Annotation:
A member of the RNA family "Actino-pnp RNA" from Saccharopolyspora erythraea, 70 nucleotides long. By type it is a cis-regulatory element.
RNA sequence: GCCGGUCCUCGGUAGUGGCUCCCGGGCGGACCUCGCAGGAGGUUCCCGAGGGCUUCGAUCGAUGGCCGGC
Numbered sequence: 001g002c003c004g005g006u007c008c009u010c011g012g013u014a015g016u017g018g019c020u021c022c023c024g025g026g027c028g029g030a031c032c033u034c035g036c037a038g039g040a041g042g043u044u045c046c047c048g049a050g051g052g053c054u055u056c057g058a059u060c061g062a063u064g065g066c067c068g069g070c
Stems, first nucleotide, its partner, number of pairs: 001070007009062005017054005023048004029044005